[Rfam]
RNA: ASpks TB sRNA
Organism: Streptomyces lonarensis
RNA sequence: CUUCACCGAGCCGAGCCACAGCGGCUCGUCCCCGGAACGUUCCUGGCCGUAGGUCGCCAGCAGCGCCUGGGCCUC
Numbered sequence: 001c002u003u004c005a006c007c008g009a010g011c012c013g014a015g016c017c018a019c020a021g022c023g024g025c026u027c028g029u030c031c032c033c034g035g036a037a038c039g040u041u042c043c044u045g046g047c048c049g050u051a052g053g054u055c056g057c058c059a060g061c062a063g064c065g066c067c068u069g070g071g072c073c074u075c
Base pairs, nucleotide, nucleotide: 014026015025016024017023031071032070033069038065039064043060044059045058047056049054